Rfam assigns this 86-nucleotide RNA sequence from Micromonospora deserti to the family "ZMP/ZTP riboswitch aptamer (pfl RNA motif)".
The match comes from Rfam's covariance-model search (44 bits).
The family's consensus secondary structure is taken from published work.
The literature on the family includes a 2015 paper in Chem Biol by Trausch et al., "Metal Ion-Mediated Nucleobase Recognition by the ZTP Riboswitch".
The source organism's lineage runs through Bacteria, Bacillati, Actinomycetes, Micromonosporales and Micromonospora.
RNA sequence: UGACCCCGACGCGACUGGCGGCCAGGGGAUGGCACCAACCAUCGGGGAGCUCCACGCCGCGGAGGUCGACCGCCUGGGCCUCCGCA
Numbered sequence: 001u002g003a004c005c006c007c008g009a010c011g012c013g014a015c016u017g018g019c020g021g022c023c024a025g026g027g028g029a030u031g032g033c034a035c036c037a038a039c040c041a042u043c044g045g046g047g048a049g050c051u052c053c054a055c056g057c058c059g060c061g062g063a064g065g066u067c068g069a070c071c072g073c074c075u076g077g078g079c080c081u082c083c084g085c086a
Stems, first nucleotide, its partner, number of pairs: 005056001008053001011050002015046002017074005029042004063081005